This 269-nucleotide RNA from Sugiyamaella lignohabitans belongs to the Rfam family "Nuclear RNase P". The organism belongs to Sugiyamaella, within Eukaryota. It is annotated as a ribozyme.
RNA sequence: UCUGGAGUUCUAUCGCGCUUACUCACACACUAAAAAGCCACUUAUAGUGGCUUGUCCCAAGUGAGUGGGAAAUUCGGUGGUACACUUCUCUCAUUCUAAACACCUCUUGAGAGGCUGAUGUGGAAACACAGGACAGGGCCAUCAGAAAACAAGAGUACUUGUACUCUAUGGGAGGUCCUGCGAGAGAUUGGGCUCUGGAUAACAGAGUCUCUUUAGUGCAAUGCGCGAUUCAGCUAAAGCUGAAACUCGAUACCGAUCAUGAACACAGA
Dot-bracket structure: ((((....[[...[......(((((..........((((((.....)))))).........)))))........(((((.........((............((((....)))).(..((((....))))..)(((((((.............((..........))......)))))))...)).....................................]...]].(((((....))))).......)))))..........))))
Notes:
It scores 62 bits against the family's covariance model. The base pairs follow the family's consensus structure, which is taken from published work.